[Rfam]
RNA sequence: AGGGGAGUCGCCAAGUCGGUUAAGGCACUGGAUUUUGAUUCCAGCAUGCGAAGGUUCGAAUCCUUCCUCCCCUG
Number, nucleotide and partner (000 for none) at each position: 001a073002g072003g071004g070005g069006a068007g067008u000009c000010g026011c025012c024013a000014a000015g000016u000017c000018g000019g000020u000021u000022a000023a000024g012025g011026c010027a000028c044029u043030g042031g041032a040033u000034u000035u000036u000037g000038a000039u000040u032041c031042c030043a029044g028045c000046a000047u000048g000049c000050g066051a065052a064053g063054g062055u000056u000057c000058g000059a000060a000061u000062c054063c053064u052065u051066c050067c007068u006069c005070c004071c003072c002073u001074g000
RNA: tRNA
Organism: Rhodoferax antarcticus